[Rfam]
The record is a 123-nucleotide sequence from Erysipelothrix larvae, which matches "Ribosomal protein L10 leader" in Rfam.
On this family, see Yakhnin et al., Nucleic Acids Res 2015: "Ribosomal protein L10(L12)4 autoregulates expression of the Bacillus subtilis rplJL operon by a transcription attenuation mechanism".
Taxonomically the source falls in Erysipelothrix (Bacteria, Bacillati, Erysipelotrichia, Erysipelotrichales).
By type it is a cis-regulatory leader.
RNA sequence: UCAUACGUUAUCAAUAUACCAAAGACAGUAACGGGGAAACCUUAAUCAUGUUACCGAGGUUGAAGUUUGAAUGUAUAAAACUUUUUAACUCGUGUCUUGGAUACGAGUUUUUUAAAUGGGUGU
Numbered sequence: 001u002c003a004u005a006c007g008u009u010a011u012c013a014a015u016a017u018a019c020c021a022a023a024g025a026c027a028g029u030a031a032c033g034g035g036g037a038a039a040c041c042u043u044a045a046u047c048a049u050g051u052u053a054c055c056g057a058g059g060u061u062g063a064a065g066u067u068u069g070a071a072u073g074u075a076u077a078a079a080a081c082u083u084u085u086u087a088a089c090u091c092g093u094g095u096c097u098u099g100g101a102u103a104c105g106a107g108u109u110u111u112u113u114a115a116a117u118g119g120g121u122g123u
Stems, first nucleotide, its partner, number of pairs: 028054006034041002088108009